[Rfam]
RNA sequence: CCGGCUCCUGAUUGUCCAAACGCAAUUCUUGCGCUAAUUUCCCACCAUCCCAAGAAUUGUGCCUGGACAUCUGAAGCCGG
Numbered sequence: 001c002c003g004g005c006u007c008c009u010g011a012u013u014g015u016c017c018a019a020a021c022g023c024a025a026u027u028c029u030u031g032c033g034c035u036a037a038u039u040u041c042c043c044a045c046c047a048u049c050c051c052a053a054g055a056a057u058u059g060u061g062c063c064u065g066g067a068c069a070u071c072u073g074a075a076g077c078c079g080g
Base pairs, nucleotide, nucleotide: 002079003078004077005076006075010071011070012069014068015067016066017065018064021061022060023059024058025057026056027055028054029053030052031051